[Rfam]
Nucleotides: 085
Base pairs, nucleotide, nucleotide: 002084004082005081006080
Number, partner (000 for none) and nucleotide at each position: 001000a002084g003000c004082g005081g006080c007000g008000g009000u010000g011000a012000u013000g014000a015000g016000u017000c018000c019000u020000a021000c022000a023000g024000a025000c026000c027000u028000g029000u030000a031000a032000u033000g034000a035000c036000u037000u038000g039000c040000g041000a042000a043000u044000a045000u046000g047000a048000u049000c050000g051000c052000a053000g054000c055000u056000c057000u058000u059000u060000a061000u062000g063000a064000a065000c066000a067000u068000c069000u070000a071000a072000g073000g074000g075000a076000c077000u078000g079000a080006g081005u082004c083000a084002c085000g

Small nucleolar RNA SNORD25: an 85-nucleotide RNA from Punica granatum. Pairs were carried over by alignment from the consensus structure, which was predicted with PFOLD. On this family, see Qu et al., Nucleic Acids Res 2001: "Identification of 10 novel snoRNA gene clusters from Arabidopsis thaliana". The match comes from Rfam's covariance-model search (63 bits). Clan: SNORD25 clan. The source organism's lineage runs through Eukaryota, Magnoliopsida, eudicotyledons, malvids and Punica.